[Rfam]
RNA sequence: GGCUGUACGAAGCAAAGAGGAUGCGUUGCGGACGCGGGUUCGAGUCCCGCCAGCUCCACCACUUGGUUAACUGGAAUAGGGUAUCCAGCUGAUGGGGCUGUAUUGGUUGCGACGUGGCGAGCAAUCAAUGUGGACAGCCCGAGAGGCGACCGACGUAAUCGGCGCAAAAAAACUAAUCGCCAACUUUGACGAUUAUUAUCAGGCACAAGCAGCCUGA
Dot-bracket structure: (((((..................(((.(((...(((((.......)))))(((((((....................................)))))))............))).)))...............)))))((............))..............................................................
Numbered sequence: 001g002g003c004u005g006u007a008c009g010a011a012g013c014a015a016a017g018a019g020g021a022u023g024c025g026u027u028g029c030g031g032a033c034g035c036g037g038g039u040u041c042g043a044g045u046c047c048c049g050c051c052a053g054c055u056c057c058a059c060c061a062c063u064u065g066g067u068u069a070a071c072u073g074g075a076a077u078a079g080g081g082u083a084u085c086c087a088g089c090u091g092a093u094g095g096g097g098c099u100g101u102a103u104u105g106g107u108u109g110c111g112a113c114g115u116g117g118c119g120a121g122c123a124a125u126c127a128a129u130g131u132g133g134a135c136a137g138c139c140c141g142a143g144a145g146g147c148g149a150c151c152g153a154c155g156u157a158a159u160c161g162g163c164g165c166a167a168a169a170a171a172a173c174u175a176a177u178c179g180c181c182a183a184c185u186u187u188g189a190c191g192a193u194u195a196u197u198a199u200c201a202g203g204c205a206c207a208a209g210c211a212g213c214c215u216g217a
Stems, first nucleotide, its partner, number of pairs: 001139005024119003028115003034050005051100007140155002

The record is a 217-nucleotide sequence from Stenotrophomonas sp. B1-1, which matches "permuted transfer-messenger RNA" in Rfam.
By type it is a non-coding RNA gene.
It is one of the family's seed sequences.